[Rfam]
RNA sequence: GACAUGUCUUGUUUUGAUUGUUGCUCAGAAAGCCUUGUAUUUGAUGGCUUUCGAGCAGUAAUCAAUCUAUGAAAUGUU
Number, nucleotide and partner (000 for none) at each position: 001g078002a077003c076004a075005u074006g000007u072008c000009u000010u000011g000012u000013u000014u065015u064016g063017a062018u061019u000020g059021u058022u057023g056024c055025u054026c053027a000028g052029a051030a050031a049032g048033c047034c046035u000036u000037g000038u000039a000040u000041u000042u000043g000044a000045u000046g034047g033048c032049u031050u030051u029052c028053g026054a025055g024056c023057a022058g021059u020060a000061a018062u017063c016064a015065a014066u000067c000068u000069a000070u000071g000072a007073a000074a005075u004076g003077u002078u001
mir-315 microRNA precursor family: a 78-nucleotide RNA sequence from Acanthoscelides obtectus.
The organism belongs to Acanthoscelides, within Eukaryota.
It scores 65 bits against the family's covariance model.
The literature on the family includes a 2003 paper in Dev Cell by Aravin et al., "The small RNA profile during Drosophila melanogaster development".